Rfam assigns this 114-nucleotide RNA sequence from Nothobranchius furzeri to the family "Potassium channel RNA editing signal". The literature on the family includes a 2004 paper in Nat Struct Mol Biol by Bhalla et al., "Control of human potassium channel inactivation by editing of a small mRNA hairpin". By type it is a cis-regulatory element. About the family: This family represents a group of sequences related to the human potassium channel Kv1.1 hairpin element which directs the efficient modification of an adenosine to inosine by an adenosine deaminase acting on RNA (ADAR).

RNA sequence: GUCGGCUAUGGCGAUAUGGUCCCAACUACGAUUGGUGGCAAGAUCGUUGGCUCCCUUUGUGCCAUCGCAGGUGUGCUGACCAUAGCCUUGCCAGUGCCUGUCAUUGUGUCCAAC
Numbered sequence: 001g002u003c004g005g006c007u008a009u010g011g012c013g014a015u016a017u018g019g020u021c022c023c024a025a026c027u028a029c030g031a032u033u034g035g036u037g038g039c040a041a042g043a044u045c046g047u048u049g050g051c052u053c054c055c056u057u058u059g060u061g062c063c064a065u066c067g068c069a070g071g072u073g074u075g076c077u078g079a080c081c082a083u084a085g086c087c088u089u090g091c092c093a094g095u096g097c098c099u100g101u102c103a104u105u106g107u108g109u110c111c112a113a114c
Stems, first nucleotide, its partner, number of pairs: 001114002004111002007108005013102004018097001021094001037077004049063003